Source information:
This 73-nucleotide RNA sequence from Kryptolebias marmoratus belongs to the Rfam family "mir-30 microRNA precursor family". Gene Ontology terms of the family: RISC complex and gene silencing by miRNA. NCBI's taxonomy places the organism under Eukaryota, Euteleostomi, Actinopteri, Neoteleostei, Kryptolebias. The base pairs follow the family's consensus structure, which was predicted with PFOLD.
RNA sequence: UUUGAGCUGUAAACAUCCCCGACUGGAAGCUGUCUGUCCUCAGAGCUUUCAGUCUGAUGUUUGCUGUUGCCAA
Numbered sequence: 001u002u003u004g005a006g007c008u009g010u011a012a013a014c015a016u017c018c019c020c021g022a023c024u025g026g027a028a029g030c031u032g033u034c035u036g037u038c039c040u041c042a043g044a045g046c047u048u049u050c051a052g053u054c055u056g057a058u059g060u061u062u063g064c065u066g067u068u069g070c071c072a073a
Base pairs, nucleotide, nucleotide: 002072004070006068007066009064010063011062012061013060014059015058016057017056022053023052024051025050026049027048028047029046030045031044